[Rfam]
Nucleotides: 065
Stems, first nucleotide, its partner, number of pairs: 001065004007059004017052004022045006030037002
Number, partner (000 for none) and nucleotide at each position: 001065g002064a003063g004062c005000a006000c007059c008058u009057c010056u011000c012000c013000c014000u015000c016000c017052g018051c019050c020049c021000g022045c023044u024043c025042g026041g027040c028000c029000a030037c031036c032000a033000c034000g035000u036031g037030g038000c039000a040027g041026c042025c043024g044023a045022g046000c047000g048000a049020g050019g051018g052017c053000c054000u055000c056010g057009g058008g059007g060000c061000a062004g063003c064002u065001c